[Rfam]
RNA sequence: GAAUGUUUGCUCUUUUAGAAAUUUUCUAGAAGGAUUCUUAUAAAAAGAAUCCCAU
Dot-bracket structure: ...............................((((((((.....))))))))...
Numbered sequence: 001g002a003a004u005g006u007u008u009g010c011u012c013u014u015u016u017a018g019a020a021a022u023u024u025u026c027u028a029g030a031a032g033g034a035u036u037c038u039u040a041u042a043a044a045a046a047g048a049a050u051c052c053c054a055u
Stems, first nucleotide, its partner, number of pairs: 032052008

U7 small nuclear RNA: a 55-nucleotide RNA sequence from Dicentrarchus labrax. Animal histone pre-mRNAs are spliced by a different mechanism than nuclear pre-mRNAs and self-splicing introns. For this family Rfam cites "3' end processing of mouse histone pre-mRNA: evidence for additional base-pairing between U7 snRNA and pre-mRNA" (Spycher et al., Nucleic Acids Res, 1994).